[Rfam]
RNA sequence: AUCUUCCCAGCGGGAGAGACCGGCCCCGCGCCGGCGCCGAAGGAGCAACCGCCCCGGAAACUCUCAGGCAAAAGGACCGCUGGGGGGCA
Dot-bracket structure: .....((((((((......((((.......)))).(((((..(((...((.....))...))))).))).......)))))))).....
Description: The family of this 89-nucleotide RNA from Futiania mangrovi is "Glycine riboswitch aptamer".